[Rfam]
RNA sequence: GGGUUUCUGGUUUGAAGGAACUUCUGGUGUGAUAUGUAGUUUAAUAUAUCGUAUCACAGCCAGUAGUUACCUACAAAAACGA
Dot-bracket structure: ..((((....(....(((((((.(((.(((((((((.............))))))))).).)).)))).)))...)))))..
RNA: mir-2944 microRNA precursor family
Organism: Photinus pyralis